A member of the RNA family "Fluoride riboswitch aptamer (crcB RNA motif)" from Mizugakiibacter sediminis, 85 nucleotides long. The organism belongs to Mizugakiibacter, within Bacteria. Gene Ontology terms of the family: positive regulation of gene expression and response to fluoride.
RNA sequence: UCGGCGUCGGGAGAUGGCAUGCCUCCCGCCCGCGAGGGCAAACCGCCGACGGCGCGCCCGAUCGGCUGAUGAUGCCUGCACCGCC
Numbered sequence: 001u002c003g004g005c006g007u008c009g010g011g012a013g014a015u016g017g018c019a020u021g022c023c024u025c026c027c028g029c030c031c032g033c034g035a036g037g038g039c040a041a042a043c044c045g046c047c048g049a050c051g052g053c054g055c056g057c058c059c060g061a062u063c064g065g066c067u068g069a070u071g072a073u074g075c076c077u078g079c080a081c082c083g084c085c
Base pairs, nucleotide, nucleotide: 010026011025012024013023016076017075018074019073020072045066046065047064048063